[Rfam]
RNA sequence: CGCUUUUUUCGCGCAGGCGGAGCUCGACCGCAAACUCAAAUCGUAAACGCCUACAUCGACCAGCACCGGGAUACCUAUGGGGUCGAGCCGAUCUGCAAGGUCUUGCAGAUUGCCCCA
Numbered sequence: 001c002g003c004u005u006u007u008u009u010c011g012c013g014c015a016g017g018c019g020g021a022g023c024u025c026g027a028c029c030g031c032a033a034a035c036u037c038a039a040a041u042c043g044u045a046a047a048c049g050c051c052u053a054c055a056u057c058g059a060c061c062a063g064c065a066c067c068g069g070g071a072u073a074c075c076u077a078u079g080g081g082g083u084c085g086a087g088c089c090g091a092u093c094u095g096c097a098a099g100g101u102c103u104u105g106c107a108g109a110u111u112g113c114c115c116c117a
Stems, first nucleotide, its partner, number of pairs: 017031004078117005089112002092109007
Rfam assigns this 117-nucleotide RNA sequence from Tenderia electrophaga to the family "ALIL pseudoknot". The match comes from Rfam's covariance-model search (111 bits). By type it is a cis-regulatory element. Lineage of the source: Bacteria > Pseudomonadati > Gammaproteobacteria > Tenderiaceae (SeqCode) > Tenderia (SeqCode).